[Rfam]
A member of the RNA family "Plastid-ycf3 group II-D1 intron", 45 nucleotides long. Plastid rpl16 is a non-coding RNA (ncRNA) recognised in plastids. It was recognised in and intronic region of a ribosome rpl16 gene. The sequence is in the family's curated seed alignment. Gene Ontology term of the family: Group II intron splicing. On this family, see Richter et al., Plant Commun 2023: "Retrograde signaling in plants: A critical review focusing on the GUN pathway and beyond".
RNA sequence: CCUUCUGUCGUGUAUCCCCGAUUAAUGCAACCUCAAAUGUUUCAA
Numbered sequence: 001c002c003u004u005c006u007g008u009c010g011u012g013u014a015u016c017c018c019c020g021a022u023u024a025a026u027g028c029a030a031c032c033u034c035a036a037a038u039g040u041u042u043c044a045a
Base pairs, nucleotide, nucleotide: 007022008021009020010019029041030040031039